Ribosomal protein L10 leader: a 133-nucleotide RNA sequence from a Selenomonadales bacterium.

RNA sequence: UUAACACUGCUAAUUCCGCUCAAGACAGUAGGUACGUAGUUUAAACGCCGUAGGCGGCCUACCGAGGUGGGAGUGUAUACUGUGGUUCAGUAUGCCUUUCCCGCAUGCGGGGAAGGCAUCUUCUCAUUGUGGA
Numbered sequence: 001u002u003a004a005c006a007c008u009g010c011u012a013a014u015u016c017c018g019c020u021c022a023a024g025a026c027a028g029u030a031g032g033u034a035c036g037u038a039g040u041u042u043a044a045a046c047g048c049c050g051u052a053g054g055c056g057g058c059c060u061a062c063c064g065a066g067g068u069g070g071g072a073g074u075g076u077a078u079a080c081u082g083u084g085g086u087u088c089a090g091u092a093u094g095c096c097u098u099u100c101c102c103g104c105a106u107g108c109g110g111g112g113a114a115g116g117c118a119u120c121u122u123c124u125c126a127u128u129g130u131g132g133a
Stems, first nucleotide, its partner, number of pairs: 028062006034040002093118010
Dot-bracket structure: ...........................((((((((...))................))))))..............................((((((((((......))))))))))...............
NCBI's taxonomy places the organism under Bacteria, Bacillati, Bacillota, Negativicutes, Selenomonadales.
A search with the family's covariance model found it, with a score of 44 bits.
About the family: This family is a putative r-protein leader autoregulatory structure found in B. subtilis and other low-GC Gram-positive bacteria. It is located in the 5' untranslated regions of mRNAs encoding ribosomal proteins L10 and L12 (rplJ-rplL). A Rho-independent transcription terminator structure that is probably involved in regulation is included at the 3' end.